[Rfam]
RNA sequence: CUUGACCGAGCCCAGGUACAGCGGGUGUCCCUCGGGCCGGUCCUGGCCGUAGGUGGCCAGCAGCGCCUGCGCUUC
Numbered sequence: 001c002u003u004g005a006c007c008g009a010g011c012c013c014a015g016g017u018a019c020a021g022c023g024g025g026u027g028u029c030c031c032u033c034g035g036g037c038c039g040g041u042c043c044u045g046g047c048c049g050u051a052g053g054u055g056g057c058c059a060g061c062a063g064c065g066c067c068u069g070c071g072c073u074u075c
Stems, first nucleotide, its partner, number of pairs: 014026001017023001031071001033069001038065002043060003047056003